[Rfam]
RNA sequence: AUAGAAACAGAGACUGAAGGGGAAGUGUUCCCCUUCAGUAAUUAGGAAGGUGCUCAUACAGCUUUGCUGUCGCUGAAGUAAAU
Numbered sequence: 001a002u003a004g005a006a007a008c009a010g011a012g013a014c015u016g017a018a019g020g021g022g023a024a025g026u027g028u029u030c031c032c033c034u035u036c037a038g039u040a041a042u043u044a045g046g047a048a049g050g051u052g053c054u055c056a057u058a059c060a061g062c063u064u065u066g067c068u069g070u071c072g073c074u075g076a077a078g079u080a081a082a083u
Base pairs, nucleotide, nucleotide: 016036017035018034019033020032021031022030023029058070059069060068061067
RNA: Clostridiales-2 RNA